[Rfam]
RNA sequence: UGGUAGAUGCACCCUGAUAACUAACUCCCCCGGUAAGCCUACAAGCACGCUGGGGGAUUUUUAU
Numbered sequence: 001u002g003g004u005a006g007a008u009g010c011a012c013c014c015u016g017a018u019a020a021c022u023a024a025c026u027c028c029c030c031c032g033g034u035a036a037g038c039c040u041a042c043a044a045g046c047a048c049g050c051u052g053g054g055g056g057a058u059u060u061u062u063a064u
Stems, first nucleotide, its partner, number of pairs: 002013003027056008037046001